[Rfam]
Nucleotides: 135
Base pairs, nucleotide, nucleotide: 020043021042022041023040024039050089051088052087053086054085055080056079057078058077059076060075064071065070098109099108100107101106112128113127
Number, partner (000 for none) and nucleotide at each position: 001000u002000c003000g004000c005000g006000g007000g008000u009000g010000u011000g012000a013000g014000u015000c016000c017000c018000g019000u020043c021042c022041g023040g024039g025000u026000a027000g028000a029000c030000a031000c032000c033000g034000g035000a036000g037000u038000g039024c040023c041022c042021g043020g044000u045000a046000g047000c048000a049000g050089g051088u052087c053086c054085c055080g056079g057078u058077u059076c060075g061000u062000c063000g064071u065070g066000g067000a068000g069000a070065c071064g072000c073000g074000g075060c076059g077058g078057g079056c080055u081000g082000a083000g084000c085054g086053g087052g088051a089050u090000g091000u092000c093000g094000a095000g096000a097000g098109c099108c100107u101106c102000g103000u104000c105000g106101g107100a108099g109098g110000g111000a112128g113127c114000a115000a116000g117000c118000a119000c120000g121000c122000g123000g124000g125000c126000c127113g128112u129000a130000g131000c132000a133000u134000c135000a
A member of the RNA family "Group II catalytic intron D1-D4-4" from Streptomyces tateyamensis, 135 nucleotides long. Group II introns are found in rRNA, tRNA and mRNA of organelles in fungi, plants and protists, and also in mRNA in bacteria. On this family, see Bonen and Vogel, Trends Genet 2001: "The ins and outs of group II introns". Gene Ontology term of the family: Group II intron splicing. Pairs were carried over by alignment from the consensus structure.